[Rfam]
The record is a 68-nucleotide RNA sequence from Paenimyroides tangerinum, which matches "Fluoride riboswitch aptamer (crcB RNA motif)" in Rfam. The base pairs follow the family's consensus structure, which is taken from published work. On this family, see Baker et al., Science 2012: "Widespread genetic switches and toxicity resistance proteins for fluoride". It scores 50 bits against the family's covariance model.
Nucleotides: 068
Base pairs, nucleotide, nucleotide: 010026011025012024013023016059017058018057019056020055021054038049039048040047041046
Number, partner (000 for none) and nucleotide at each position: 001000a002000c003000u004000u005000u006000u007000c008000u009000a010026g011025g012024a013023a014000a015000u016059g017058g018057u019056g020055u021054u022000c023013u024012u025011c026010c027000u028000g029000a030000u031000u032000u033000a034000a035000a036000c037000c038049g039048c040047u041046u042000u043000u044000a045000a046041a047040a048039g049038c050000u051000g052000a053000u054021g055020a056019c057018g058017c059016c060000u061000g062000a063000u064000u065000u066000u067000u068000u